[Rfam]
RNA: Pyrrolysine insertion sequence mttB
Organism: marine gamma proteobacterium HTCC2080
RNA sequence: UUAUGCGCUUCUAAACUGCCCGAUGCGCAAGCCGCUUAUGAAUCGGCUAAUACCCUUCAGACCGCUGCCCUGGCCGGCGUGAACUUUAUGCUUCACACCG
Numbered sequence: 001u002u003a004u005g006c007g008c009u010u011c012u013a014a015a016c017u018g019c020c021c022g023a024u025g026c027g028c029a030a031g032c033c034g035c036u037u038a039u040g041a042a043u044c045g046g047c048u049a050a051u052a053c054c055c056u057u058c059a060g061a062c063c064g065c066u067g068c069c070c071u072g073g074c075c076g077g078c079g080u081g082a083a084c085u086u087u088a089u090g091c092u093u094c095a096c097a098c099c100g
Stems, first nucleotide, its partner, number of pairs: 003012001025032001035060001077098001079096002